[Rfam]
RNA: Twister_sister_ribozyme
Nucleotides: 082
Stems, first nucleotide, its partner, number of pairs: 004077004013067003016042001018029003032048004049064006
Number, partner (000 for none) and nucleotide at each position: 001000a002000a003000c004077u005076a006075c007074c008000g009000c010000a011000a012000g013067g014066c015065c016042c017000g018029c019028u020027c021000c022000g023000a024000a025000a026000g027020g028019a029018g030000u031000g032048a033047u034046c035045g036000g037000u038000g039000c040000a041000a042016g043000u044000c045035c046034g047033a048032u049064g050063c051062c052061c053060u054059c055000u056000u057000c058000g059054g060053a061052g062051g063050g064049u065015g066014g067013u068000g069000c070000u071000c072000a073000u074007g075006g076005u077004g078000c079000a080000c081000a082000u